[Rfam]
Shown here is a 134-nucleotide RNA from Paenibacillus graminis, a member of the family "pan motif". It scores 38 bits against the family's covariance model. The source organism's lineage runs through Bacteria, Bacillati, Bacilli, Caryophanales and Paenibacillus.
RNA sequence: GAGACAGCAUCGGUACCCGAGCUGUACUCGGGAAGAAACCUUUUAUCAGGAAUUUGCUUUUGGAUUCACCUUCUUAACUGUAUUUCACGGUUACGUUGGAUUCUGCUCUGAGCCGUAAGGACCGAGACAGAAGG
Numbered sequence: 001g002a003g004a005c006a007g008c009a010u011c012g013g014u015a016c017c018c019g020a021g022c023u024g025u026a027c028u029c030g031g032g033a034a035g036a037a038a039c040c041u042u043u044u045a046u047c048a049g050g051a052a053u054u055u056g057c058u059u060u061u062g063g064a065u066u067c068a069c070c071u072u073c074u075u076a077a078c079u080g081u082a083u084u085u086c087a088c089g090g091u092u093a094c095g096u097u098g099g100a101u102u103c104u105g106c107u108c109u110g111a112g113c114c115g116u117a118a119g120g121a122c123c124g125a126g127a128c129a130g131a132a133g134g
Stems, first nucleotide, its partner, number of pairs: 001029003004025005010020002103130003106126003110122001113120002